[Rfam]
RNA sequence: GCCAUCCUUUAGGUAUUAAGGAAGGGUAGUCCCAGCUACUAGGGAGGCUGAGACAGGAGGAUCGCUUGAGUCCAAGAGUUAUGGGCUGCACUGAGCUAUGCCGAUUGGGUGUUCACACUAAGUUCGGCAUCAGUACGAUGGCCUCCCGGGAGCCGGGGACCAGCAGGUUGCCUAAGGAGGGGUGAACCAGCCCAGGUUGGAAACGGAGCAGGUCAAAACUCCCGUGAGGAUCCGUGGUGGAAUGAGGCCUGUGAAUAGCCGCUGCACUCCAGCCUGGACAACACAGCAUAGCGU
Numbered sequence: 001g002c003c004a005u006c007c008u009u010u011a012g013g014u015a016u017u018a019a020g021g022a023a024g025g026g027u028a029g030u031c032c033c034a035g036c037u038a039c040u041a042g043g044g045a046g047g048c049u050g051a052g053a054c055a056g057g058a059g060g061a062u063c064g065c066u067u068g069a070g071u072c073c074a075a076g077a078g079u080u081a082u083g084g085g086c087u088g089c090a091c092u093g094a095g096c097u098a099u100g101c102c103g104a105u106u107g108g109g110u111g112u113u114c115a116c117a118c119u120a121a122g123u124u125c126g127g128c129a130u131c132a133g134u135a136c137g138a139u140g141g142c143c144u145c146c147c148g149g150g151a152g153c154c155g156g157g158g159a160c161c162a163g164c165a166g167g168u169u170g171c172c173u174a175a176g177g178a179g180g181g182g183u184g185a186a187c188c189a190g191c192c193c194a195g196g197u198u199g200g201a202a203a204c205g206g207a208g209c210a211g212g213u214c215a216a217a218a219c220u221c222c223c224g225u226g227a228g229g230a231u232c233c234g235u236g237g238u239g240g241a242a243u244g245a246g247g248c249c250u251g252u253g254a255a256u257a258g259c260c261g262c263u264g265c266a267c268u269c270c271a272g273c274c275u276g277g278a279c280a281a282c283a284c285a286g287c288a289u290a291g292c293g294u
Stems, first nucleotide, its partner, number of pairs: 001048003005022005011016001030045003055294001057292001061289002064287003070279005076273001082271004087266004092261002095259005101253001106251005112245001113241002116239005122232001124230002128226003131170004137164001139162003143158004148153001171177002179222005190213003197206003
Shown here is a 294-nucleotide sequence from Cricetulus griseus, a member of the family "Metazoan signal recognition particle RNA".
The family's RNA type in Rfam is non-coding RNA gene.